[Rfam]
RNA sequence: CAGGCAUGCUGGAGUCCCGCCAGCGGCGCCUGGGUUUGUUGAAAACCCGACACCGGACGGGGCAGAA
Numbered sequence: 001c002a003g004g005c006a007u008g009c010u011g012g013a014g015u016c017c018c019g020c021c022a023g024c025g026g027c028g029c030c031u032g033g034g035u036u037u038g039u040u041g042a043a044a045a046c047c048c049g050a051c052a053c054c055g056g057a058c059g060g061g062g063c064a065g066a067a
Base pairs, nucleotide, nucleotide: 014063015062016061017060018059019058024055025054026053031049032048033047034046035044036043037042